Rfam assigns this 59-nucleotide RNA sequence from Sarcophilus harrisii to the family "mir-7398 microRNA precursor family".
The match comes from Rfam's covariance-model search (54 bits).
The organism belongs to Sarcophilus, within Eukaryota.
RNA sequence: UGUUGAGAGGCAGGAAACAUGCCGUAUUUCCUCUGGGUAAGUUUCUUGCCUCUUACAAU
Number, nucleotide and partner (000 for none) at each position: 001u000002g056003u055004u000005g000006a053007g052008a051009g050010g049011c048012a047013g046014g045015a044016a043017a042018c000019a000020u000021g038022c037023c036024g000025u000026a000027u000028u000029u000030c000031c000032u000033c000034u000035g000036g023037g022038u021039a000040a000041g000042u017043u016044u015045c014046u013047u012048g011049c010050c009051u008052c007053u006054u000055a003056c002057a000058a000059u000